[Rfam]
RNA sequence: UGCUGCAUGGUGAGCACAAAGCCAAACCAUUCUUUCGCCUUUUACUUAAGAAUGUCGUGUGUUCGCCACUUUAAGCAGCAUACGCCAAUUCUUGUAGGGUUCCUUCGUUAAGAGGU
Numbered sequence: 001u002g003c004u005g006c007a008u009g010g011u012g013a014g015c016a017c018a019a020a021g022c023c024a025a026a027c028c029a030u031u032c033u034u035u036c037g038c039c040u041u042u043u044a045c046u047u048a049a050g051a052a053u054g055u056c057g058u059g060u061g062u063u064c065g066c067c068a069c070u071u072u073a074a075g076c077a078g079c080a081u082a083c084g085c086c087a088a089u090u091c092u093u094g095u096a097g098g099g100u101u102c103c104u105u106c107g108u109u110a111a112g113a114g115g116u
Base pairs, nucleotide, nucleotide: 003078004077005076006075008068009067010066011065012064013063014062015061016060017059018058028054029053030052031051032050033049034048098116100114101113102112